[Rfam]
Nucleotides: 349
Base pairs, nucleotide, nucleotide: 040053041052042051043050044049057186058185059184060183061182067179068178069176070175071174072173081165082164085162086161087160091107092106093105094104095103108147109146110145111144112143113142114141187202188201189200190199193212194211196210197209198208315330316329317328318327321346322345323344324343325342326341
Number, partner (000 for none) and nucleotide at each position: 001000c002000c003000u004000c005000u006000u007000c008000a009000a010000a011000u012000c013000g014000c015000g016000a017000u018000c019000g020000c021000g022000u023000u024000g025000g026000c027000c028000u029000a030000u031000a032000u033000u034000c035000g036000c037000c038000u039000u040053g041052u042051u043050c044049c045000u046000c047000a048000g049044g050043g051042a052041a053040c054000u055000a056000u057186g058185g059184a060183c061182a062000u063000a064000a065000a066000c067179g068178c069176g070175c071174g072173c073000g074000u075000a076000a077000u078000a079000a080000g081165c082164g083000g084000a085162u086161c087160g088000g089000a090000c091107c092106c093105g094104g095103g096000g097000g098000c099000g100000g101000u102000a103095c104094c105093c106092g107091g108147c109146g110145g111144c112143u113142c114141c115000a116000c117000c118000a119000a120000a121000u122000g123000c124000c125000u126000u127000c128000g129000u130000u131000g132000g133000g134000g135000g136000a137000u138000c139000a140000u141114g142113g143112g144111g145110c146109c147108g148000a149000a150000a151000c152000a153000g154000g155000a156000u157000c158000g159000a160087c161086g162085a163000a164082c165081g166000u167000g168000u169000a170000a171000a172000g173072g174071c175070g176069u177000u178068g179067c180000u181000u182061u183060g184059u185058c186057c187202c188201g189200g190199u191000g192000a193212g194211g195000u196210a197209c198208c199190a200189c201188c202187g203000u204000u205000a206000u207000c208198g209197g210196u211194c212193c213000g214000a215000a216000a217000a218000g219000c220000a221000u222000a223000a224000u225000u226000g227000c228000c229000a230000a231000c232000g233000a234000c235000a236000a237000u238000c239000g240000u241000g242000c243000u244000c245000c246000g247000g248000u249000u250000g251000c252000u253000c254000u255000g256000g257000c258000u259000g260000c261000g262000u263000a264000a265000g266000c267000a268000g269000u270000c271000c272000g273000a274000a275000a276000g277000a278000c279000c280000g281000a282000a283000a284000a285000u286000c287000a288000a289000g290000u291000c292000c293000u294000u295000u296000c297000g298000c299000c300000u301000a302000g303000c304000c305000g306000c307000g308000u309000a310000a311000g312000g313000c314000g315330g316329g317328g318327u319000u320000c321346g322345c323344a324343g325342g326341c327318a328317c329316c330315u331000g332000g333000c334000a335000a336000c337000a338000g339000a340000a341326g342325c343324c344323u345322g346321c347000a348000c349000u

A member of the RNA family "Alphaproteobacteria transfer-messenger RNA" from Jhaorihella thermophila, 349 nucleotides long.
The source organism's lineage runs through Bacteria, Pseudomonadota, Alphaproteobacteria, Paracoccaceae and Jhaorihella.
Pairs were carried over by alignment from the consensus structure, which is taken from published work.
From the family's description: Bacterial tmRNA, also known as 10Sa RNA or SsrA, is named for its dual tRNA and mRNA-like properties.
The match comes from Rfam's covariance-model search (322 bits).